[Rfam]
RNA sequence: GGAUGUGAGGGCAAUCUCGCUGUGAGAUCUGAUAUGCCAUUGAUUGCACGGGUUGAUUUGACCGGUCUGGCUAGCCUAGGUGGGUGUCCCCUUUCUUCCUCAGAAUUCCAUUUGUGUUCCUCCUGGAGCUGUGUGCCUGGUUAAUGAGGACAGCCUCCCCAACAGACUGGUUUUUUUUAUUGUUCACUGGUCAAGGGUGUGUGGUAGCCGUGCUCCCCUGCUGGAAGCUCUAAGUAAGCUCAAGGUCCAUUUGUAGAAGAAUGUAGGGUAGUCAAAUAUCUGAUACCAAAGACAAUCCAAAUGAGAAGCUCCAUGCAGCAGUCUGUGUCUUGGU
Numbered sequence: 001g002g003a004u005g006u007g008a009g010g011g012c013a014a015u016c017u018c019g020c021u022g023u024g025a026g027a028u029c030u031g032a033u034a035u036g037c038c039a040u041u042g043a044u045u046g047c048a049c050g051g052g053u054u055g056a057u058u059u060g061a062c063c064g065g066u067c068u069g070g071c072u073a074g075c076c077u078a079g080g081u082g083g084g085u086g087u088c089c090c091c092u093u094u095c096u097u098c099c100u101c102a103g104a105a106u107u108c109c110a111u112u113u114g115u116g117u118u119c120c121u122c123c124u125g126g127a128g129c130u131g132u133g134u135g136c137c138u139g140g141u142u143a144a145u146g147a148g149g150a151c152a153g154c155c156u157c158c159c160c161a162a163c164a165g166a167c168u169g170g171u172u173u174u175u176u177u178u179a180u181u182g183u184u185c186a187c188u189g190g191u192c193a194a195g196g197g198u199g200u201g202u203g204g205u206a207g208c209c210g211u212g213c214u215c216c217c218c219u220g221c222u223g224g225a226a227g228c229u230c231u232a233a234g235u236a237a238g239c240u241c242a243a244g245g246u247c248c249a250u251u252u253g254u255a256g257a258a259g260a261a262u263g264u265a266g267g268g269u270a271g272u273c274a275a276a277u278a279u280c281u282g283a284u285a286c287c288a289a290a291g292a293c294a295a296u297c298c299a300a301a302u303g304a305g306a307a308g309c310u311c312c313a314u315g316c317a318g319c320a321g322u323c324u325g326u327g328u329c330u331u332g333g334u
Stems, first nucleotide, its partner, number of pairs: 001109003006102006013094002019090001024088002027085005033079001035074001037070003042067004046062001118170001121166002123140004128136002141162002148158003207277001213271002216268006228259002231256001234254005299334001303329002306326001308322003312318001
This 334-nucleotide sequence from Eulacestoma nigropectus belongs to the Rfam family "7SK RNA".
Rfam classes the family as a non-coding RNA gene.
The family is grouped with related families in Rfam's "7SK clan".
About the family: 7SK was discovered as an abundant small nuclear RNA in the mid-70s but a possible function has only recently been suggested. Two independent studies have found that 7SK RNA binds the CDK9/cyclin T complex (known as elongation factor P-TEFb). P-TEFb activates transcription by phosphorylating the C-terminal domain of RNA polymerase II. This process is negatively regulated by the 7SK RNP. The secondary structure of 7SK RNA shown here was proposed by Wasserman and Steitz on the basis of chemical modification and enzymatic cleavage experiments. This family contains a number of annotated pseudogenes and 7SK derived repeats.
A search with the family's covariance model found it, with a score of 153 bits.
A reference for the family is Blencowe (2002), "Transcription: surprising role for an elusive small nuclear RNA", Curr Biol.